[Rfam]
Overview: This 145-nucleotide part of an RNA from Stachyamoeba sp. ATCC 50324 belongs to the Rfam family "Eukaryotic small subunit ribosomal RNA". Rfam's curators put it in the seed alignment. Taxonomically the source falls in Stachyamoeba (Eukaryota, Discoba, Heterolobosea, Tetramitia). Its Rfam clan is "SSU clan". The literature on the family includes a 2002 paper in BMC Bioinformatics by Cannone et al., "The comparative RNA web (CRW) site: an online database of comparative sequence and structure information for ribosomal, intron, and other RNAs". The family has 90 seed sequences and 75,755 matches in Rfam 15.1. Pairs were carried over by alignment from the consensus structure, which is taken from published work.
RNA sequence: CCGCCCGUCGCUCCUACCGAUUGGAGAAAGAAGUGAAAUGGAAGGAUUGGCCUCCGGGUCUAAAGAAUUCCCUUGAACUUCUUUCUCUGUAGGAAGGAGAAGUCGUAACAAGGUCUUCGUAGGUGAACCUGCAGAAGGAUCAAGC
Numbered sequence: 001c002c003g004c005c006c007g008u009c010g011c012u013c014c015u016a017c018c019g020a021u022u023g024g025a026g027a028a029a030g031a032a033g034u035g036a037a038a039u040g041g042a043a044g045g046a047u048u049g050g051c052c053u054c055c056g057g058g059u060c061u062a063a064a065g066a067a068u069u070c071c072c073u074u075g076a077a078c079u080u081c082u083u084u085c086u087c088u089g090u091a092g093g094a095a096g097g098a099g100a101a102g103u104c105g106u107a108a109c110a111a112g113g114u115c116u117u118c119g120u121a122g123g124u125g126a127a128c129c130u131g132c133a134g135a136a137g138g139a140u141c142a143a144g145c
Stems, first nucleotide, its partner, number of pairs: 001112001003109001006105002009102001011099005017093002021089001023088012037074002040071004047064002049060004114137001116135002119132005